[Rfam]
The family of this 77-nucleotide RNA sequence from Parnassius apollo is "Mammalian CPEB3 ribozyme".
The source organism's lineage runs through Eukaryota, Panarthropoda, Panorpida, Amphiesmenoptera and Parnassius.
For this family Rfam cites "Autocatalytic RNA cleavage in the human beta-globin pre-mRNA promotes transcription termination" (Teixeira et al., Nature, 2004).
Pairs were carried over by alignment from the consensus structure, which is taken from published work.
RNA sequence: CCAUUUUUCAUGGGGGUCAUUGUAGAAGCGUGCUCGUCGCGACCCCUGCCAGCCCUUUUCAGGGCUGCAAUUCUACA
Numbered sequence: 001c002c003a004u005u006u007u008u009c010a011u012g013g014g015g016g017u018c019a020u021u022g023u024a025g026a027a028g029c030g031u032g033c034u035c036g037u038c039g040c041g042a043c044c045c046c047u048g049c050c051a052g053c054c055c056u057u058u059u060c061a062g063g064g065c066u067g068c069a070a071u072u073c074u075a076c077a
Base pairs, nucleotide, nucleotide: 013046014045015044016043017042018041021077022076023075024074025073026072027071028040029039030038050067051066052065053064054063055062056061